[Rfam]
RNA sequence: UUUCUUCCAGUCCCUUGUCAUUCUCUCGCCCGGUGUUUUAAUACGACUGGACGGAGAACUGAUAAGGGCUUGUGGGAAA
Dot-bracket structure: ...........(((((((((((((((..((..................))..)))))).)))))))))...........
Numbered sequence: 001u002u003u004c005u006u007c008c009a010g011u012c013c014c015u016u017g018u019c020a021u022u023c024u025c026u027c028g029c030c031c032g033g034u035g036u037u038u039u040a041a042u043a044c045g046a047c048u049g050g051a052c053g054g055a056g057a058a059c060u061g062a063u064a065a066g067g068g069c070u071u072g073u074g075g076g077a078a079a
Stems, first nucleotide, its partner, number of pairs: 012068009021058006029050002

Description:
The family of this 79-nucleotide RNA from Ignelater luminosus is "mir-184 microRNA precursor family". Pairs were carried over by alignment from the consensus structure, which was predicted with PFOLD. Gene Ontology terms of the family: RISC complex and gene silencing by miRNA. The literature on the family includes a 2005 paper in Genes Dev by Chen et al., "The developmental miRNA profiles of zebrafish as determined by small RNA cloning". A search with the family's covariance model found it, with a score of 70 bits.